This 79-nucleotide RNA sequence from Cyprinus carpio belongs to the Rfam family "drz-agam-1 ribozyme". Rfam 15.1 lists 10,507 matches to the family in 53 species. A search with the family's covariance model found it, with a score of 49 bits. For this family Rfam cites "Widespread occurrence of self-cleaving ribozymes" (Webb et al., Science, 2009).

RNA sequence: GGCUGAUGAAACCCUUCCACCACCUCCUUGUGGUAUUGGCUGGUAGCAAGGAACUUAAUGGUCCUUGGCCAAUGGUGGG
Numbered sequence: 001g002g003c004u005g006a007u008g009a010a011a012c013c014c015u016u017c018c019a020c021c022a023c024c025u026c027c028u029u030g031u032g033g034u035a036u037u038g039g040c041u042g043g044u045a046g047c048a049a050g051g052a053a054c055u056u057a058a059u060g061g062u063c064c065u066u067g068g069c070c071a072a073u074g075g076u077g078g079g
Stems, first nucleotide, its partner, number of pairs: 016079006022034003047067006054060001